[Rfam]
RNA: eL15-Euryarchaeota ribosomal protein leader
Organism: Halobellus salinus
RNA sequence: CCCGAGACAUCGGGACGAAAUGUGGGUCGGCGUCGAACGCCGCCCGAAUCGCAAG
Numbered sequence: 001c002c003c004g005a006g007a008c009a010u011c012g013g014g015a016c017g018a019a020a021u022g023u024g025g026g027u028c029g030g031c032g033u034c035g036a037a038c039g040c041c042g043c044c045c046g047a048a049u050c051g052c053a054a055g
Base pairs, nucleotide, nucleotide: 001014002013003012004011005010016051017050018049024045025044026043028042029041030040031039032038033037